[Rfam]
RNA sequence: UCAAAGUAACCUCAUGGACAAGACCCUAUCAAUAUUGCCUCUGCUUUUUUGUGGUCAGGAGUAGUGCAAUAUUGCUUAUAGGGUCUUUGCUUUCAGGACUU
Dot-bracket structure: ...................(((((((((((((((((((..(((((..............))))).)))))))))...))))))))))..............
Numbered sequence: 001u002c003a004a005a006g007u008a009a010c011c012u013c014a015u016g017g018a019c020a021a022g023a024c025c026c027u028a029u030c031a032a033u034a035u036u037g038c039c040u041c042u043g044c045u046u047u048u049u050u051g052u053g054g055u056c057a058g059g060a061g062u063a064g065u066g067c068a069a070u071a072u073u074g075c076u077u078a079u080a081g082g083g084u085c086u087u088u089g090c091u092u093u094c095a096g097g098a099c100u101u
Stems, first nucleotide, its partner, number of pairs: 020087010030074009041064005

Rfam assigns this 101-nucleotide RNA sequence from Megalops atlanticus to the family "mir-454 microRNA precursor family". The family's consensus secondary structure was predicted with RNAalifold. Lineage of the source: Eukaryota > Deuterostomia > Neopterygii > Megalopidae > Megalops. A search with the family's covariance model found it, with a score of 87 bits. Gene Ontology terms of the family: miRNA-mediated post-transcriptional gene silencing and RISC complex.